[Rfam]
RNA: TPP riboswitch aptamer (THI element)
RNA sequence: CCGCCCUGCCCGGGGUGCGCAAUGGUUGCGCUGAGAUGGAUUCCAAACCCGUGAACUUGAUCUGGUUCAUACCAGCGUAAGAAGUGCAGAGCAGCCAAUGG
Numbered sequence: 001c002c003g004c005c006c007u008g009c010c011c012g013g014g015g016u017g018c019g020c021a022a023u024g025g026u027u028g029c030g031c032u033g034a035g036a037u038g039g040a041u042u043c044c045a046a047a048c049c050c051g052u053g054a055a056c057u058u059g060a061u062c063u064g065g066u067u068c069a070u071a072c073c074a075g076c077g078u079a080a081g082a083a084g085u086g087c088a089g090a091g092c093a094g095c096c097a098a099u100g101g
Base pairs, nucleotide, nucleotide: 006089007088008087009086011051012050013049014048016045017031018030019029020028021027038044039043056081057080058079059078062075063074064073065072